Background
The family of this 68-nucleotide RNA sequence from Betaproteobacteria bacterium MOLA814 is "ilvH RNA".
RNA sequence: UCUGAAUCUAUUGUUCGCCAAACCAGCUUGUUACCGUGAGCUGGCGAGGGCGGCAAAAAGAAACAACC
Numbered sequence: 001u002c003u004g005a006a007u008c009u010a011u012u013g014u015u016c017g018c019c020a021a022a023c024c025a026g027c028u029u030g031u032u033a034c035c036g037u038g039a040g041c042u043g044g045c046g047a048g049g050g051c052g053g054c055a056a057a058a059a060g061a062a063a064c065a066a067c068c
Base pairs, nucleotide, nucleotide: 011056012055013054015053016052017051018050019049023044024043025042026041027040028039029038030037031036
NCBI's taxonomy places the organism under Bacteria, Pseudomonadati, Pseudomonadota, Betaproteobacteria.
The family's RNA type in Rfam is cis-regulatory element.